[Rfam]
RNA sequence: GAAUUGCAGGCGACCUUCUCCUCCUCCCAAGGGCGCCUGUGGAACAACAGCACUCCUCCUCCCAGCUGUUGUUCGGUUAUUUCAAGAAAGCCUGCCGCACCUCCUCCCGCGGCAGGCUUUUUUG
Numbered sequence: 001g002a003a004u005u006g007c008a009g010g011c012g013a014c015c016u017u018c019u020c021c022u023c024c025u026c027c028c029a030a031g032g033g034c035g036c037c038u039g040u041g042g043a044a045c046a047a048c049a050g051c052a053c054u055c056c057u058c059c060u061c062c063c064a065g066c067u068g069u070u071g072u073u074c075g076g077u078u079a080u081u082u083c084a085a086g087a088a089a090g091c092c093u094g095c096c097g098c099a100c101c102u103c104c105u106c107c108c109g110c111g112g113c114a115g116g117c118u119u120u121u122u123u124g
Base pairs, nucleotide, nucleotide: 006040007039008038010036011035012034014032015031016030042074043073044072045071046070047069048068049067050066051065088119089118090117091116092115093114094113095112096111097110098109
A member of the RNA family "Alphaproteobacterial ar14" from Rhizobium sp. AC44/96, 124 nucleotides long. Smr14C2 was renamed NfeR1 (Nodule Formation Efficiency RNA) highly expressed in salt stress and during the symbiotic interaction on legume roots. Pairs were carried over by alignment from the consensus structure. For this family Rfam cites "A survey of sRNA families in alpha-proteobacteria" (del Val et al., RNA Biol, 2012).